[Rfam]
RNA sequence: AAAAAAUAUUAAGCCUCUUCCUGUAUAUGUUCGAUAAUAUGGUUCGAAUGUUUCUACCGGGUUACCUUAAAUUACCCGACUACAGGAAGAGGGGUGAAUAAA
Dot-bracket structure: .................((((((((...((((((.........))))))........(((((.(.......).)))))..))))))))..............
RNA: Purine riboswitch aptamer
Organism: Tepiditoga spiralis